A member of the RNA family "Small nucleolar RNA SNORD79" from Triplophysa rosa, 79 nucleotides long.
The literature on the family includes a 1998 paper in Mol Cell Biol by Smith and Steitz, "Classification of gas5 as a multi-small-nucleolar-RNA (snoRNA) host gene and a member of the 5'-terminal oligopyrimidine gene family reveals common features of snoRNA host genes".
Clan: SNORD74 clan.
[Rfam]
RNA sequence: CGCUGUUAAUGAUGAUCGUUUUGAAACAAUGGGAAUCUCUCUGAAUUAGAAUGAAAGAGAUCUAUGUACUGAAACAGAU
Numbered sequence: 001c002g003c004u005g006u007u008a009a010u011g012a013u014g015a016u017c018g019u020u021u022u023g024a025a026a027c028a029a030u031g032g033g034a035a036u037c038u039c040u041c042u043g044a045a046u047u048a049g050a051a052u053g054a055a056a057g058a059g060a061u062c063u064a065u066g067u068a069c070u071g072a073a074a075c076a077g078a079u
Stems, first nucleotide, its partner, number of pairs: 003077005
Notes: Pairs were carried over by alignment from the consensus structure, which was predicted with PFOLD. By type it is a C/D-box small nucleolar RNA. Lineage of the source: Eukaryota > Craniata > Clupeocephala > Cobitoidei > Triplophysa. From the family's description: snoRNA U79 or Z22 is found in intron 7 of the gas5 gene in humans and is also present in mice.